[Rfam]
Nucleotides: 075
Base pairs, nucleotide, nucleotide: 001075002074003073004071
Number, partner (000 for none) and nucleotide at each position: 001075u002074c003073c004071u005000u006000a007000u008000g009000a010000u011000g012000a013000u014000u015000u016000a017000a018000a019000c020000a021000g022000u023000u024000u025000g026000a027000c028000u029000u030000u031000c032000g033000u034000u035000c036000u037000u038000c039000u040000g041000a042000a043000a044000c045000u046000a047000a048000u049000g050000a051000a052000g053000c054000c055000a056000a057000a058000c059000u060000u061000u062000c063000u064000g065000u066000c067000c068000u069000g070000a071004a072000a073003g074002g075001g